The record is a 264-nucleotide RNA sequence from Caldinitratiruptor microaerophilus, which matches "Bacterial large signal recognition particle RNA" in Rfam. NCBI's taxonomy places the organism under Bacteria, Bacillati, Eubacteriales, Symbiobacteriaceae, Caldinitratiruptor. The signal recognition particle (SRP) is a universally conserved ribonucleoprotein involved in the co-translational targeting of proteins to membranes. The match comes from Rfam's covariance-model search (188 bits). The family's consensus secondary structure is taken from published work.

RNA sequence: CCGUGCUAGACGGGGAGGUAGCGGUGCCCUGCACCCGCAAUCCGCUACAGCGGGGUUGAAUCCCUGCCCGCGGGUGCGUCCUGUGGGGUCCGGCUGGCGAAAGCGGCGAGGAAGGCUGGGUCCUGCGCGGCGGGGGCCCGUGAACCCGGACAGGCCCGGAAGGGAGCAUCCGUAAGCGGAAUCCCCCGUGCGCCGCAGGGUGGCCUGGCCCGAGCUGGCUACGGCAGUAUCGCCCGGAGGGCGCAUUCAACGGCAGGUGCACGG
Number, nucleotide and partner (000 for none) at each position: 001c264002c263003g262004u261005g260006c259007u000008a000009g057010a056011c055012g030013g029014g028015g027016a000017g025018g000019u023020a000021g000022c000023g019024g000025u017026g000027c015028c014029c013030u012031g000032c000033a000034c054035c053036c052037g051038c050039a000040a000041u000042c000043c000044g000045c000046u000047a000048c000049a000050g038051c037052g036053g035054g034055g011056u010057u009058g000059a000060a000061u000062c000063c257064c256065u255066g254067c253068c252069c000070g000071c000072g248073g247074g246075u245076g244077c000078g242079u241080c240081c239082u238083g000084u236085g235086g234087g233088g000089u000090c000091c232092g231093g000094c000095u226096g225097g000098c223099g222100a000101a000102a000103g219104c218105g216106g215107c214108g000109a000110g000111g000112a000113a000114g210115g209116c208117u207118g206119g205120g204121u203122c199123c198124u197125g196126c195127g194128c190129g189130g000131c188132g187133g186134g185135g184136g000137c000138c179139c178140g177141u176142g000143a000144a000145c000146c000147c172148g171149g170150a169151c000152a000153g000154g000155c164156c163157c162158g000159g000160a000161a000162g157163g156164g155165a000166g000167c000168a000169u150170c149171c148172g147173u000174a000175a000176g141177c140178g139179g138180a000181a000182u000183c000184c135185c134186c133187c132188g131189u129190g128191c000192g000193c000194c127195g126196c125197a124198g123199g122200g000201u000202g000203g121204c120205c119206u118207g117208g116209c115210c114211c000212g000213a000214g107215c106216u105217g000218g104219c103220u000221a000222c099223g098224g000225c096226a095227g000228u000229a000230u000231c092232g091233c087234c086235c085236g084237g000238a082239g081240g080241g079242c078243g000244c076245a075246u074247u073248c072249a000250a000251c000252g068253g067254c066255a065256g064257g063258u000259g006260c005261a004262c003263g002264g001